[Rfam]
RNA sequence: AAACAUCUUAAUAAUUUAGGUCGUAUAAGUUGAUAAUAUGGUUCAAUGUUUCUACCUCGCCUCCGUAAAUGGCGAGACUACGGCUAUUCAUGAAUGAUAU
Numbered sequence: 001a002a003a004c005a006u007c008u009u010a011a012u013a014a015u016u017u018a019g020g021u022c023g024u025a026u027a028a029g030u031u032g033a034u035a036a037u038a039u040g041g042u043u044c045a046a047u048g049u050u051u052c053u054a055c056c057u058c059g060c061c062u063c064c065g066u067a068a069a070u071g072g073c074g075a076g077a078c079u080a081c082g083g084c085u086a087u088u089c090a091u092g093a094a095u096g097a098u099a100u
Base pairs, nucleotide, nucleotide: 019085020084021083022082023081024080025079029047030046031045032044033043056076057075058074059073060072061071